[Rfam]
RNA sequence: AUUAAUAAUUGUUAGGUGAGGCUCCUAGUCAAACAUAAGCUACUGACCAGAAAUGUCGAGAGACUCUAAUGGUUAGGACAAGAAUUGUCGAAAUAAGGCUUUUCUCAAAGUAGCUAAAAGCAACGCUUUUUACGUUGGCUAGUGCUAAAACUCAACGAAGAAUAUUCAGC
Numbered sequence: 001a002u003u004a005a006u007a008a009u010u011g012u013u014a015g016g017u018g019a020g021g022c023u024c025c026u027a028g029u030c031a032a033a034c035a036u037a038a039g040c041u042a043c044u045g046a047c048c049a050g051a052a053a054u055g056u057c058g059a060g061a062g063a064c065u066c067u068a069a070u071g072g073u074u075a076g077g078a079c080a081a082g083a084a085u086u087g088u089c090g091a092a093a094u095a096a097g098g099c100u101u102u103u104c105u106c107a108a109a110g111u112a113g114c115u116a117a118a119a120g121c122a123a124c125g126c127u128u129u130u131u132a133c134g135u136u137g138g139c140u141a142g143u144g145c146u147a148a149a150a151c152u153c154a155a156c157g158a159a160g161a162a163u164a165u166u167c168a169g170c
Base pairs, nucleotide, nucleotide: 005166008163009162010161011156012155013096015152016151017150020146021145022144025142026141027140028139029138030137031136032135039114040113041112042111043110045074046073047072048071049070055064056063057062081105082104083103084102087099088098089097116130117129118128
RNA: M-box riboswitch aptamer (ykoK leader)